[Rfam]
RNA sequence: GCCGGUCCUCGGUAGUGGCACUCGGACGGAACGACUUCCGGGUGCUUCGAUCGAAGACCGGC
Numbered sequence: 001g002c003c004g005g006u007c008c009u010c011g012g013u014a015g016u017g018g019c020a021c022u023c024g025g026a027c028g029g030a031a032c033g034a035c036u037u038c039c040g041g042g043u044g045c046u047u048c049g050a051u052c053g054a055a056g057a058c059c060g061g062c
Stems, first nucleotide, its partner, number of pairs: 001062007009054005017046010028035001